[Rfam]
RNA sequence: CAAGCCUGCGAGGAUCGAAUGGUCUCAACAGGUCCCUCGGAUCAGCCGAAAGGCUGGACUUGAGACGAAAGGGUGGUUUUUAUGGAUGUCUUUUGUCCACCCGUCAAUGCCCUCCAUAUUUCUUGCUGGCAAGAAACUUGGAGAGGAAUCAAAAACUAGUCCUCGUU
Numbered sequence: 001c002a003a004g005c006c007u008g009c010g011a012g013g014a015u016c017g018a019a020u021g022g023u024c025u026c027a028a029c030a031g032g033u034c035c036c037u038c039g040g041a042u043c044a045g046c047c048g049a050a051a052g053g054c055u056g057g058a059c060u061u062g063a064g065a066c067g068a069a070a071g072g073g074u075g076g077u078u079u080u081u082a083u084g085g086a087u088g089u090c091u092u093u094u095g096u097c098c099a100c101c102c103g104u105c106a107a108u109g110c111c112c113u114c115c116a117u118a119u120u121u122c123u124u125g126c127u128g129g130c131a132a133g134a135a136a137c138u139u140g141g142a143g144a145g146g147a148a149u150c151a152a153a154a155a156c157u158a159g160u161c162c163u164c165g166u167u
Base pairs, nucleotide, nucleotide: 007030008029010026011025012024014023015022016021035067036064037063038062039061040060043056044055045054046053047052085161086160087159088156089155091154092153093152094151095150110146111145112143113142114141115140120135121134122133123132124131125130
This 167-nucleotide part of an RNA from Fusarium sarcochroum belongs to the Rfam family "Ascomycota telomerase RNA".
Its Rfam clan is "Telomerase clan".
Taxonomically the source falls in Fusarium lateritium species complex (Eukaryota, Opisthokonta, leotiomyceta, Hypocreomycetidae).
A reference for the family is Qi et al. (2013), "The common ancestral core of vertebrate and fungal telomerase RNAs", Nucleic Acids Res.